Rfam assigns this 96-nucleotide RNA from Streptococcus pneumoniae to the family "Cia-dependent small RNA csRNA1". A reference for the family is Halfmann et al. (2007), "Identification of the genes directly controlled by the response regulator CiaR in Streptococcus pneumoniae: five out of 15 promoters drive expression of small non-coding RNAs", Mol Microbiol.
[Rfam]
RNA sequence: AUUAAAUAAAGACCUCCUAACUUUAUUUACAAAUAUCCUAAACUUUUCUUUUUCAUAAUAAUCUCCCUUAACUCCACCCAAUCAGGUGGAGUUUUU
Dot-bracket structure: ..(((((((((.........)))))))))........................................(((((((((......)))))))))...